[Rfam]
Rfam assigns this 88-nucleotide RNA sequence from Cyprinodon variegatus to the family "mir-204 microRNA precursor family". The family's consensus secondary structure was predicted with RNAalifold. On this family, see Chen et al., Genes Dev 2005: "The developmental miRNA profiles of zebrafish as determined by small RNA cloning". Rfam links the family to the GO terms miRNA-mediated post-transcriptional gene silencing and RISC complex. The source organism's lineage runs through Eukaryota, Eumetazoa, Craniata, Teleostomi and Cyprinodon. The family has 60 seed sequences and 1,730 matches in Rfam 15.1.

RNA sequence: CUGUGACAAGUGGGCUUCCCUUUGUCAUCCUAUGCCUGGGACUUUAAAUAAGGCAGGGACAGCAAAGGGAUGCCCAGCUGUCACCACU
Numbered sequence: 001c002u003g004u005g006a007c008a009a010g011u012g013g014g015c016u017u018c019c020c021u022u023u024g025u026c027a028u029c030c031u032a033u034g035c036c037u038g039g040g041a042c043u044u045u046a047a048a049u050a051a052g053g054c055a056g057g058g059a060c061a062g063c064a065a066a067g068g069g070a071u072g073c074c075c076a077g078c079u080g081u082c083a084c085c086a087c088u
Stems, first nucleotide, its partner, number of pairs: 017070006024063002028059004034054004